The record is a 118-nucleotide sequence from Desulforapulum autotrophicum, which matches "TPP riboswitch aptamer (THI element)" in Rfam. A search with the family's covariance model found it, with a score of 64 bits.

[Rfam]
RNA sequence: AUGGAAGGCUGGGGGAGUCGAAGGUAUUCGGCUGAGAGGAAACAAAAAGCAACCCUUGUUUCGACCCCUGGAACCUGAUCCGGCUCAUAUCGGCGAAGGAAAGCCCCUUUCCCCCAUC
Numbered sequence: 001a002u003g004g005a006a007g008g009c010u011g012g013g014g015g016a017g018u019c020g021a022a023g024g025u026a027u028u029c030g031g032c033u034g035a036g037a038g039g040a041a042a043c044a045a046a047a048a049g050c051a052a053c054c055c056u057u058g059u060u061u062c063g064a065c066c067c068c069u070g071g072a073a074c075c076u077g078a079u080c081c082g083g084c085u086c087a088u089a090u091c092g093g094c095g096a097a098g099g100a101a102a103g104c105c106c107c108u109u110u111c112c113c114c115c116a117u118c
Stems, first nucleotide, its partner, number of pairs: 007105004011068004017032005039062007074099003080093004